[Rfam]
The record is a 315-nucleotide RNA from Branchiostoma floridae, which matches "7SK RNA" in Rfam. A search with the family's covariance model found it, with a score of 79 bits. The family's RNA type in Rfam is non-coding RNA gene. A reference for the family is Wassarman and Steitz (1991), "Structural analyses of the 7SK ribonucleoprotein (RNP), the most abundant human small RNP of unknown function", Mol Cell Biol. Clan: 7SK clan. From the family's description: 7SK was discovered as an abundant small nuclear RNA in the mid-70s but a possible function has only recently been suggested. Two independent studies have found that 7SK RNA binds the CDK9/cyclin T complex (known as elongation factor P-TEFb). P-TEFb activates transcription by phosphorylating the C-terminal domain of RNA polymerase II. This process is negatively regulated by the 7SK RNP. The secondary structure of 7SK RNA shown here was proposed by Wasserman and Steitz on the basis of chemical modification and enzymatic cleavage experiments.
RNA sequence: AGUUGCUGUUUCCGGUUUGGCAUCACCCCGUCCAUAGAUCGCCCCUAGUGUGUUUCGGCUGAUCUGGCUGGUUCCGUGUUGCCUCCGCCACAUCCGCAUCUUCCUCCGGCUCUCCCGACGCCUCGCGCUCGGUCGAGAGUCUAUCUCCUCCCCGAGUCAACCCCCUGUGAUUGCCGAAAGGUUGGGUGAAAAGCGUAGCUGCAGCCCCUGAUGUUCUCCACUGCUAGGCCCAGAGAGCGUCCUGUCGAGCGCAGCAAAGUCAAGCGCCAAACACAUCCAAUACGGCGCUGCCGCGCAGGCCGCCUGCCAUUUUUU
Dot-bracket structure: ((..(.(((..(.((...((((.(((.((..(((..(((((((.............))).)))))))..))....))).)))).)))..)))..)....)).......(((..(((((.((.....))))))(((.................))))..).......)).............................(((....(..........(((...((..(.............)..))..)))....)...)))..................((.(.(((((.((.......)).))..))).)...))